[Rfam]
RNA sequence: AAAGUUUGACAGACAAUCGCCGGUGCGCUAGCGCACGGGAGGAAAGUCCGGGCUCCAUAGGGCAGGGUGCUGGAUAACGUCCAGUCAGCGCGAGUUGAAGGAUAGUGCCACAGAAAUGGACCGCCGAUGACGCCGCAAGGCGAACAGGCAAGGGUGGAACCGUGGUGUAAGAGACCACGAGGGGAUAGGGUGACUUAUUCCCUGGUAAACCCCACUUGGAGCAAGACCGAAGAGAACGCAGCGGACGGCUUGCCGAUCCGCAGUCCUUGCCCGGGGCGCGUUCGGGUUGGUCGCUGGAGUCCGUCAGCAAUGGCGGGCCUAGAUAGAUGAUUGUCACUUCGAUGGUGGGAGGGUUGUGGUGCCCGUUACGACCACCGGAAGUACAGAACCCGGCUUACGGCAAGCUUUCCGG
Numbered sequence: 001a002a003a004g005u006u007u008g009a010c011a012g013a014c015a016a017u018c019g020c021c022g023g024u025g026c027g028c029u030a031g032c033g034c035a036c037g038g039g040a041g042g043a044a045a046g047u048c049c050g051g052g053c054u055c056c057a058u059a060g061g062g063c064a065g066g067g068u069g070c071u072g073g074a075u076a077a078c079g080u081c082c083a084g085u086c087a088g089c090g091c092g093a094g095u096u097g098a099a100g101g102a103u104a105g106u107g108c109c110a111c112a113g114a115a116a117u118g119g120a121c122c123g124c125c126g127a128u129g130a131c132g133c134c135g136c137a138a139g140g141c142g143a144a145c146a147g148g149c150a151a152g153g154g155u156g157g158a159a160c161c162g163u164g165g166u167g168u169a170a171g172a173g174a175c176c177a178c179g180a181g182g183g184g185a186u187a188g189g190g191u192g193a194c195u196u197a198u199u200c201c202c203u204g205g206u207a208a209a210c211c212c213c214a215c216u217u218g219g220a221g222c223a224a225g226a227c228c229g230a231a232g233a234g235a236a237c238g239c240a241g242c243g244g245a246c247g248g249c250u251u252g253c254c255g256a257u258c259c260g261c262a263g264u265c266c267u268u269g270c271c272c273g274g275g276g277c278g279c280g281u282u283c284g285g286g287u288u289g290g291u292c293g294c295u296g297g298a299g300u301c302c303g304u305c306a307g308c309a310a311u312g313g314c315g316g317g318c319c320u321a322g323a324u325a326g327a328u329g330a331u332u333g334u335c336a337c338u339u340c341g342a343u344g345g346u347g348g349g350a351g352g353g354u355u356g357u358g359g360u361g362c363c364c365g366u367u368a369c370g371a372c373c374a375c376c377g378g379a380a381g382u383a384c385a386g387a388a389c390c391c392g393g394c395u396u397a398c399g400g401c402a403a404g405c406u407u408u409c410c411g412g
Stems, first nucleotide, its partner, number of pairs: 001408008010399001012335007020039002023036005044396003048393005053221004060272004065217005070084005085099001086097004100212002105210002107206003121153002123149003131142004161179006181202009225292004234283006263277005299318008

Bacterial RNase P class A: a 412-nucleotide RNA from Paenibacillus oceani.
NCBI's taxonomy places the organism under Bacteria, Bacillota, Bacilli, Caryophanales, Paenibacillus.
By type it is a ribozyme.
Gene Ontology terms of the family: tRNA processing, dimeric ribonuclease P complex and ribonuclease P activity.
The family's consensus secondary structure is taken from published work.
Ribonuclease P (RNase P) is a ubiquitous endoribonuclease, found in archaea, bacteria and eukarya as well as chloroplasts and mitochondria. Its best characterised activity is the generation of mature 5'-ends of tRNAs by cleaving the 5'-leader elements of precursor-tRNAs. Cellular RNase Ps are ribonucleoproteins.